[Rfam]
A member of the RNA family "Small nucleolar RNA SNORD58" from Aythya fuligula, 68 nucleotides long. Rfam links the family to the GO terms RNA processing and nucleolus. On this family, see Galardi et al., Mol Cell Biol 2002: "Purified box C/D snoRNPs are able to reproduce site-specific 2'-O-methylation of target RNA in vitro". It is annotated as a C/D-box small nucleolar RNA. The base pairs follow the family's consensus structure, which was predicted with PFOLD. About the family: snoRNA U58 is found in introns 1, 3 and 6 of the ribosomal protein RPL17 gene in humans. The source organism's lineage runs through Eukaryota, Amniota, Saurischia, Aythyinae and Aythya.
RNA sequence: UUGCCGUGAUGACUUCUCUUAGGACACCUUUGGAGUACCCGUGAAAACAAACACCGGUUCUGAGCAAC
Numbered sequence: 001u002u003g004c005c006g007u008g009a010u011g012a013c014u015u016c017u018c019u020u021a022g023g024a025c026a027c028c029u030u031u032g033g034a035g036u037a038c039c040c041g042u043g044a045a046a047a048c049a050a051a052c053a054c055c056g057g058u059u060c061u062g063a064g065c066a067a068c
Stems, first nucleotide, its partner, number of pairs: 001067004
Dot-bracket structure: ((((...........................................................)))).

Overview
Clan: SNORD58 clan. Rfam 15.1 lists 2,484 matches to the family in 680 species. The match comes from Rfam's covariance-model search (72 bits).